[Rfam]
RNA: U2 spliceosomal RNA
Organism: Wallemia ichthyophaga
RNA sequence: AUCCUCUCUGGCCUUUUGGCUUAGAUCAAGUGUAGUAUCUGUUCUUCCAAGUUCGAACAACUUGGAUCGCAUAACUUAUGCGACAAACGUUCGAUCUAAUUUUUAUCCGCGUCCAGUCGCCCUCACUGCUUGCAUAGGAUGGCUGGAAGAUGGCCUUGCGUUGCACUACCGCAUGUGCCGUCAGCGCUC
Number, nucleotide and partner (000 for none) at each position: 001a000002u000003c000004c000005u000006c000007u025008c024009u023010g021011g020012c019013c018014u000015u000016u000017u000018g013019g012020c011021u010022u000023a009024g008025a007026u000027c000028a000029a000030g000031u000032g000033u000034a000035g000036u000037a000038u000039c000040u000041g000042u000043u000044c000045u000046u066047c065048c064049a063050a062051g061052u000053u000054c000055g000056a000057a000058c000059a000060a000061c051062u050063u049064g048065g047066a046067u083068c082069g081070c080071a079072u078073a077074a000075c000076u000077u073078a072079u071080g070081c069082g068083a067084c000085a000086a000087a000088c000089g000090u000091u000092c000093g000094a000095u000096c000097u000098a000099a000100u000101u000102u000103u000104u000105a000106u000107c000108c000109g000110c000111g000112u000113c146114c145115a144116g143117u142118c141119g140120c000121c000122c000123u000124c000125a000126c000127u134128g133129c000130u000131u000132g000133c128134a127135u000136a000137g000138g000139a000140u119141g118142g117143c116144u115145g114146g113147a000148a000149g182150a181151u180152g179153g178154c177155c175156u000157u173158g172159c171160g170161u000162u000163g000164c000165a000166c000167u000168a000169c000170c160171g159172c158173a157174u000175g155176u000177g154178c153179c152180g151181u150182c149183a000184g000185c000186g000187c000188u000189c000